[Rfam]
RNA: DnaX ribosomal frameshifting element
Organism: Pantoea vagans
RNA sequence: GUCAGGGAGCCGGCAAAGCAAAAAAGAGUGAGCCGGCAGCGCGUUCCGCGCGGCCGGCGAAU
Numbered sequence: 001g002u003c004a005g006g007g008a009g010c011c012g013g014c015a016a017a018g019c020a021a022a023a024a025a026g027a028g029u030g031a032g033c034c035g036g037c038a039g040c041g042c043g044u045u046c047c048g049c050g051c052g053g054c055c056g057g058c059g060a061a062u
Base pairs, nucleotide, nucleotide: 032058033057034056035055036054037053039051040050041049042048